[Rfam]
Nucleotides: 121
Stems, first nucleotide, its partner, number of pairs: 012030002015027005031069005040057005081118004086114004091110005
Number, partner (000 for none) and nucleotide at each position: 001000a002000a003000a004000a005000a006000a007000a008000g009000u010000g011000a012030c013029c014000c015027g016026c017025g018024a019023u020000a021000c022000g023019g024018u025017c026016g027015c028000a029013g030012g031069u032068c033067c034066a035065u036000g037000g038000u039000a040057u041056u042055u043054u044053c045000a046000c047000c048000u049000u050000u051000c052000g053044g054043g055042a056041a057040a058000a059000u060000a061000c062000g063000a064000a065035a066034u067033g068032g069031g070000a071000g072000a073000g074000g075000a076000g077000a078000a079000a080000c081118c082117g083116g084115a085000g086114g087113a088112a089111g090000a091110g092109c093108u094107u095106a096000u097000g098000g099000g100000g101000a102000a103000a104000c105000g106095u107094a108093a109092g110091u111089c112088u113087u114086c115084u116083c117082c118081g119000c120000g121000g